[Rfam]
RNA: c-di-AMP riboswitch aptamer (ydaO/yuaA leader)
RNA sequence: AGGUCCAGAACGACAGACGGCAGGGACGGGGGACCCAGGUGUGACCGGGGUCCGGGCAACCGGACUCCUUGGGGUGAAGUCCCGGGUGCGGACGUACCGCACACGGGGCCGGGCGAAUCCACAGUCCGAACCCGACAGCUCACCUCGCAGGCGUGUGGAGAGGCUUG
Numbered sequence: 001a002g003g004u005c006c007a008g009a010a011c012g013a014c015a016g017a018c019g020g021c022a023g024g025g026a027c028g029g030g031g032g033a034c035c036c037a038g039g040u041g042u043g044a045c046c047g048g049g050g051u052c053c054g055g056g057c058a059a060c061c062g063g064a065c066u067c068c069u070u071g072g073g074g075u076g077a078a079g080u081c082c083c084g085g086g087u088g089c090g091g092a093c094g095u096a097c098c099g100c101a102c103a104c105g106g107g108g109c110c111g112g113g114c115g116a117a118u119c120c121a122c123a124g125u126c127c128g129a130a131c132c133c134g135a136c137a138g139c140u141c142a143c144c145u146c147g148c149a150g151g152c153g154u155g156u157g158g159a160g161a162g163g164c165u166u167g
Stems, first nucleotide, its partner, number of pairs: 004025003027147005036071004072133003080108004111127004
Dot-bracket structure: ...(((................))).(((((....((((............................))))(((.....((((.....................))))..((((.........))))...))).........)))))....................